[Rfam]
RNA sequence: AGGUGGGAGUGAGGGUAGACGGGGACGAGGCAGAGCAUGAGAUGGGUCAUUCGGCCUCAAGGGUUGCCACCCUUCCCGUGCACUGCCUCUUCCCUGGCUCUCCUUUUCCCUACUCU
Dot-bracket structure: ................((.((((((..((((((.(((((.(...((........................))...)))))).))))))..)))))).)).................

MIR408 microRNA precursor family: a 116-nucleotide RNA sequence from Cuscuta australis. The organism belongs to Cuscuta sect. Cleistogrammica, within Eukaryota. On this family, see Sunkar and Zhu, Plant Cell 2004: "Novel and stress-regulated microRNAs and other small RNAs from Arabidopsis".